The family of this 421-nucleotide sequence from Ammoniphilus oxalaticus is "Bacterial RNase P class B". Gene Ontology terms of the family: ribonuclease P activity, dimeric ribonuclease P complex and tRNA processing.
RNA sequence: GAAUGUGUGUAGUCGCUGCUUACUGUUAAGUAAGUAGAGGAAAGUCCAGGCUCACCCGGAAGUGGAUCGUUGCUUUUUAAAACGAUGAUCCCUGCUGAGAUGCCCGGAGUGAUCACGCCUAUCGCAAGGUAGGGCAGCUGAGUGUAACGCUUGGUUGACGGCGAGGAACUAACCUAAGGCGUUUCGCUAUGGUUAUAUUACUCUGAAAGUGCCACAGUGACGAAUCUGUUCGGAAACGAACCAGAGUGGAACGAGGUAAACCCCGUGAGUGAGCAACCCAAAUAUAGGUAGGGGCGCCGUCCUGCGGGAAAUGAACCAAAGGGACGGAUCGAUUUUGCGAUCGAUAGUUAAAUGACUGCAACUUCUCGUACGAGGCUGGCUGCCGCGAUCAGUACGGAAGAACAGAACCUGGCUUACAGCA
Numbered sequence: 001g002a003a004u005g006u007g008u009g010u011a012g013u014c015g016c017u018g019c020u021u022a023c024u025g026u027u028a029a030g031u032a033a034g035u036a037g038a039g040g041a042a043a044g045u046c047c048a049g050g051c052u053c054a055c056c057c058g059g060a061a062g063u064g065g066a067u068c069g070u071u072g073c074u075u076u077u078u079a080a081a082a083c084g085a086u087g088a089u090c091c092c093u094g095c096u097g098a099g100a101u102g103c104c105c106g107g108a109g110u111g112a113u114c115a116c117g118c119c120u121a122u123c124g125c126a127a128g129g130u131a132g133g134g135c136a137g138c139u140g141a142g143u144g145u146a147a148c149g150c151u152u153g154g155u156u157g158a159c160g161g162c163g164a165g166g167a168a169c170u171a172a173c174c175u176a177a178g179g180c181g182u183u184u185c186g187c188u189a190u191g192g193u194u195a196u197a198u199u200a201c202u203c204u205g206a207a208a209g210u211g212c213c214a215c216a217g218u219g220a221c222g223a224a225u226c227u228g229u230u231c232g233g234a235a236a237c238g239a240a241c242c243a244g245a246g247u248g249g250a251a252c253g254a255g256g257u258a259a260a261c262c263c264c265g266u267g268a269g270u271g272a273g274c275a276a277c278c279c280a281a282a283u284a285u286a287g288g289u290a291g292g293g294g295c296g297c298c299g300u301c302c303u304g305c306g307g308g309a310a311a312u313g314a315a316c317c318a319a320a321g322g323g324a325c326g327g328a329u330c331g332a333u334u335u336u337g338c339g340a341u342c343g344a345u346a347g348u349u350a351a352a353u354g355a356c357u358g359c360a361a362c363u364u365c366u367c368g369u370a371c372g373a374g375g376c377u378g379g380c381u382g383c384c385g386c387g388a389u390c391a392g393u394a395c396g397g398a399a400g401a402a403c404a405g406a407a408c409c410u411g412g413c414u415u416a417c418a419g420c421a
Base pairs, nucleotide, nucleotide: 004421005420006419007417008360009359010358011357012356013355014354016037017036018035019034020033021032042415043414044413046412047411048410049409050408051273052272053271054270055269056107057106058105059104113268114267115266116265117264118133119132120131121130122129123128134159135157136156137155138154139153140152141151142150143149160263161262163203164202165201171194172193173192174191178188179187180186209261210260211257212256213255225245226244227243228242229240230239231238232237277293278292279291297327298326299325300324301323302322303321328345329344330343331342332341333340362400363399364398365397367396368395369394370393371392
The source organism's lineage runs through Bacteria, Bacillati, Bacilli, Paenibacillaceae and Ammoniphilus. The match comes from Rfam's covariance-model search (250 bits).